Shown here is a 78-nucleotide RNA sequence from Facklamia sp. 252, a member of the family "skipping-rope RNA". Lineage of the source: Bacteria > Bacillota > Bacilli > Aerococcaceae > Facklamia.

[Rfam]
RNA sequence: AAUAGUUGAGGGCAGAAAGGGCUCCUGCCGCACCUGAAAGGGUAUCUGAGAUGUUGGGGUGCCGACCAACCAAUUAUU
Number, nucleotide and partner (000 for none) at each position: 001a078002a077003u076004a075005g074006u073007u072008g071009a000010g000011g029012g028013c027014a026015g025016a000017a000018a000019g000020g063021g062022c061023u000024c000025c015026u014027g013028c012029c011030g000031c048032a043033c042034c041035u040036g000037a000038a000039a000040g035041g034042g033043u032044a000045u000046c000047u000048g031049a000050g000051a000052u000053g070054u069055u068056g067057g066058g000059g000060u000061g022062c021063c020064g000065a000066c057067c056068a055069a054070c053071c008072a007073a006074u005075u004076a003077u002078u001

It scores 74 bits against the family's covariance model.